[Rfam]
RNA sequence: UUAGUCCUUGUCUUCGGGGAGCAUGACUGUUCAAUGAACGUUUAGUGAGGGCAGUUUGCUGACAAAUUAUACAUAUCGCGUUAAUAUAACCUCAGUAUUGAUGCAAUUUUUGGCUGG
Numbered sequence: 001u002u003a004g005u006c007c008u009u010g011u012c013u014u015c016g017g018g019g020a021g022c023a024u025g026a027c028u029g030u031u032c033a034a035u036g037a038a039c040g041u042u043u044a045g046u047g048a049g050g051g052c053a054g055u056u057u058g059c060u061g062a063c064a065a066a067u068u069a070u071a072c073a074u075a076u077c078g079c080g081u082u083a084a085u086a087u088a089a090c091c092u093c094a095g096u097a098u099u100g101a102u103g104c105a106a107u108u109u110u111u112g113g114c115u116g117g
Base pairs, nucleotide, nucleotide: 005020006019007018008017009016021059022058023057026055027054028053029052030051031050032049038046039045078104079103080102081101082100083099090095
Dot-bracket structure: ....(((((......)))))(((..(((((((.....((.....))..))))))).)))..................((((((......(....)...)))))).............